Shown here is an 85-nucleotide sequence from Geotrypetes seraphini, a member of the family "Small nucleolar RNA SNORD71".
RNA sequence: UGUGCUGUUGAGUGAUGAAACAUUUGAGUGAUCCAUCAACAGAGUGUCCAACCACUGUGCUGAGAUUCACUGCUGACAACGCACA
Numbered sequence: 001u002g003u004g005c006u007g008u009u010g011a012g013u014g015a016u017g018a019a020a021c022a023u024u025u026g027a028g029u030g031a032u033c034c035a036u037c038a039a040c041a042g043a044g045u046g047u048c049c050a051a052c053c054a055c056u057g058u059g060c061u062g063a064g065a066u067u068c069a070c071u072g073c074u075g076a077c078a079a080c081g082c083a084c085a
Stems, first nucleotide, its partner, number of pairs: 002084004007080003010074001014033003018029001036063003040059001044055003
Notes: About the family: snoRNA HBII-239 belongs to the family of C/D snoRNAs.It is the human orthologue of the mouse MBII-239 described and is predicted to guide 2'O-ribose methylation of 5.8S rRNA on residue U14. The literature on the family includes a 2001 paper in EMBO J by Huttenhofer et al., "RNomics: an experimental approach that identifies 201 candidates for novel, small, non-messenger RNAs in mouse". NCBI's taxonomy places the organism under Eukaryota, Metazoa, Gnathostomata, Tetrapoda, Geotrypetes. The family's consensus secondary structure was predicted with RNAalifold.